Notes:
A member of the RNA family "Purine riboswitch aptamer" from Bacillus sp. FJAT-27916, 101 nucleotides long. The organism belongs to Bacillus, within Bacteria.
RNA sequence: UUUAAUAUAAUAGAUAAACCUUGUAUAAAUUCAAGAAUAUGGCUUGAACGUUUCUACCAGCUACCGAUAAUAGCUUGUCUACAAGGGAUGAGAAAUGAUUG
Numbered sequence: 001u002u003u004a005a006u007a008u009a010a011u012a013g014a015u016a017a018a019c020c021u022u023g024u025a026u027a028a029a030u031u032c033a034a035g036a037a038u039a040u041g042g043c044u045u046g047a048a049c050g051u052u053u054c055u056a057c058c059a060g061c062u063a064c065c066g067a068u069a070a071u072a073g074c075u076u077g078u079c080u081a082c083a084a085g086g087g088a089u090g091a092g093a094a095a096u097g098a099u100u101g
Stems, first nucleotide, its partner, number of pairs: 019086007030048006058077002060074004
The family's consensus secondary structure is taken from published work.
The match comes from Rfam's covariance-model search (77 bits).
The family is grouped with related families in Rfam's "Purine riboswitches".